[Rfam]
Nucleotides: 054
Stems, first nucleotide, its partner, number of pairs: 002053002006051003010047002013045002016041005022035005
Number, partner (000 for none) and nucleotide at each position: 001000a002053a003052a004000g005000u006051g007050g008049c009000u010047u011046a012000u013045g014044c015000g016041a017040c018039a019038g020037c021000c022035a023034u024033g025032g026031a027000c028000u029000g030000g031026u032025u033024c034023a035022u036000a037020g038019c039018u040017g041016u042000g043000u044014g045013c046011u047010a048000u049008g050007c051006u052003u053002u054000c
Shown here is a 54-nucleotide RNA sequence from Felis catus, a member of the family "Editing element of GABA-3 exon 9". The sequence is in the family's curated seed alignment. On this family, see Ohlson et al., RNA 2007: "Editing modifies the GABA(A) receptor subunit alpha3". The family's consensus secondary structure is taken from published work.